[Rfam]
RNA sequence: AAUCGGCGUACGGUGUCGGGUACGUGUUACCCAUGAUUGAGCCGAGGGGGAUGAGCCUCAGUAACAGCAGCUCCGGCUGGAAAACUGGAACAUACAUCGUCGGGUAGAGUUUGGUAGGUCAGCAAUGAUUCGAAGAAGUCGGGCCCG
Numbered sequence: 001a002a003u004c005g006g007c008g009u010a011c012g013g014u015g016u017c018g019g020g021u022a023c024g025u026g027u028u029a030c031c032c033a034u035g036a037u038u039g040a041g042c043c044g045a046g047g048g049g050g051a052u053g054a055g056c057c058u059c060a061g062u063a064a065c066a067g068c069a070g071c072u073c074c075g076g077c078u079g080g081a082a083a084a085c086u087g088g089a090a091c092a093u094a095c096a097u098c099g100u101c102g103g104g105u106a107g108a109g110u111u112u113g114g115u116a117g118g119u120c121a122g123c124a125a126u127g128a129u130u131c132g133a134a135g136a137a138g139u140c141g142g143g144c145c146c147g
Stems, first nucleotide, its partner, number of pairs: 003045005011039004018032005047057002058088005068079004101147005107140002110137003117130005
The family of this 147-nucleotide RNA sequence is "RT-3 RNA". The family's RNA type in Rfam is small RNA. The sequence is in the family's curated seed alignment.